[Rfam]
RNA: Vault RNA
Organism: Molossus molossus
RNA sequence: GGGCUGGCUUUUAGCUCAGCGGUUUCUUUGAGUCAAGCUUGCAGCUUGCUAACCACUCAUGCUUUUGAGGGUGGUUUGAAACCCGUGGGUCUGUCCAGCCCUCUG
Numbered sequence: 001g002g003g004c005u006g007g008c009u010u011u012u013a014g015c016u017c018a019g020c021g022g023u024u025u026c027u028u029u030g031a032g033u034c035a036a037g038c039u040u041g042c043a044g045c046u047u048g049c050u051a052a053c054c055a056c057u058c059a060u061g062c063u064u065u066u067g068a069g070g071g072u073g074g075u076u077u078g079a080a081a082c083c084c085g086u087g088g089g090u091c092u093g094u095c096c097a098g099c100c101c102u103c104u105g
Stems, first nucleotide, its partner, number of pairs: 002100006014090004019086004027080008